[Rfam]
RNA sequence: AUAUCAGUAUGGUGUAAGUCGCUCUGGAUAAGAGCGUCUGCUAAAUGACUAAAA
Dot-bracket structure: ............((((...((((((.....))))))..))).)...........
Shown here is a 54-nucleotide RNA sequence from Coregonus sp. 'balchen', a member of the family "UnaL2 LINE 3' element".
On this family, see Baba et al., RNA 2004: "Solution structure of an RNA stem-loop derived from the 3' conserved region of eel LINE UnaL2".
The organism belongs to Coregonus, within Eukaryota.
Rfam classes the family as a cis-regulatory element.